RNA sequence: GCCCCACUGUCUUCUAUGGCUUUUUAUUCCUAUGUGAUUAUAUCACUGCUUUCAUAUAGGGAUUGAAGCCGUGCAAUACGCUGGGGA
Dot-bracket structure: .(((((.(((.((.(((((((((..((((((((((((..............)))))))))))).))))))))).)).))).))))).
The family of this 87-nucleotide sequence from Phrynocephalus forsythii is "mir-135 microRNA precursor family". Pairs were carried over by alignment from the consensus structure, which was predicted with PFOLD. The source organism's lineage runs through Eukaryota, Bilateria, Episquamata, Iguania and Phrynocephalus. Rfam links the family to the GO terms RISC complex and gene silencing by miRNA. The literature on the family includes a 2004 paper in Proc Natl Acad Sci U S A by Kim et al., "Identification of many microRNAs that copurify with polyribosomes in mammalian neurons".